[Rfam]
RNA sequence: CAGAUCACCUCAAUUGAGACACUGAUGAUUGCCAUGUUCAUAAGUGCUUCUCUUUGGGGUUGUCUUG
Numbered sequence: 001c002a003g004a005u006c007a008c009c010u011c012a013a014u015u016g017a018g019a020c021a022c023u024g025a026u027g028a029u030u031g032c033c034a035u036g037u038u039c040a041u042a043a044g045u046g047c048u049u050c051u052c053u054u055u056g057g058g059g060u061u062g063u064c065u066u067g
Stems, first nucleotide, its partner, number of pairs: 004063002007060005013054001016050003020046004025041003
A member of the RNA family "miR-430 microRNA precursor family" from Collichthys lucidus, 67 nucleotides long. The family's consensus secondary structure was predicted with RNAalifold. The family is grouped with related families in Rfam's "mir-290 clan". For this family Rfam cites "MicroRNAs regulate brain morphogenesis in zebrafish" (Giraldez et al., Science, 2005).